Rfam assigns this 176-nucleotide RNA sequence from Salinarchaeum sp. IM2453 to the family "Sense overlapping transcript RNA 0042 (sot)".
RNA sequence: CGGUAACUCCGAAUCCCUCACAGGAUAGGAGUAACGGCUGUCUGGCCCAGCUAUCGGUUCGCCUGUUCGAUAAACAAACGGGGCGAGUAGCCCCACAAGAACAGGUGCGACCGUAACCCGGCAAAUAUCCCAACGCUGCGGUGCGGUUCGGGAAGCCUCGUCGUUCACGACGGGGA
Numbered sequence: 001c002g003g004u005a006a007c008u009c010c011g012a013a014u015c016c017c018u019c020a021c022a023g024g025a026u027a028g029g030a031g032u033a034a035c036g037g038c039u040g041u042c043u044g045g046c047c048c049a050g051c052u053a054u055c056g057g058u059u060c061g062c063c064u065g066u067u068c069g070a071u072a073a074a075c076a077a078a079c080g081g082g083g084c085g086a087g088u089a090g091c092c093c094c095a096c097a098a099g100a101a102c103a104g105g106u107g108c109g110a111c112c113g114u115a116a117c118c119c120g121g122c123a124a125a126u127a128u129c130c131c132a133a134c135g136c137u138g139c140g141g142u143g144c145g146g147u148u149c150g151g152g153a154a155g156c157c158u159c160g161u162c163g164u165u166c167a168c169g170a171c172g173g174g175g176a
Stems, first nucleotide, its partner, number of pairs: 003035002007031004013026003036052005055113005062105007080094005128153004133148001156175008
About the family: It is associated with IS1341-type transposase (tnpB) genes, at the 3'-end in H. salinarum NRC-1. The tetraloop structural motif may be functional.